[Rfam]
RNA sequence: GCCGAAUCCGUUGCUGCAGGCAUCGGAACGGGGGACCCACACAUCCCUGGGGCGAAUCGCGCGGGCUUCCGCGCGUAGCGGCACUCCCGCGAGCCCGUCAGCUCACCUCGUAGGC
Numbered sequence: 001g002c003c004g005a006a007u008c009c010g011u012u013g014c015u016g017c018a019g020g021c022a023u024c025g026g027a028a029c030g031g032g033g034g035a036c037c038c039a040c041a042c043a044u045c046c047c048u049g050g051g052g053c054g055a056a057u058c059g060c061g062c063g064g065g066c067u068u069c070c071g072c073g074c075g076u077a078g079c080g081g082c083a084c085u086c087c088c089g090c091g092a093g094c095c096c097g098u099c100a101g102c103u104c105a106c107c108u109c110g111u112a113g114g115c
Base pairs, nucleotide, nucleotide: 001115002114003113007027008026009025028111029110030109031108032107033106038049039048050096051095052094058075059074060073061072078090079089080088081087
The family of this 115-nucleotide sequence from a Solirubrobacteraceae bacterium is "c-di-AMP riboswitch aptamer (ydaO/yuaA leader)". Rfam describes the family as follows. This family represents a conserved RNA structure found upstream of the ydaO and yuaA genes in Bacillus subtilis and related genes in other bacteria. It scores 63 bits against the family's covariance model. Its family is annotated with regulation of gene expression and cyclic-di-AMP binding in the Gene Ontology.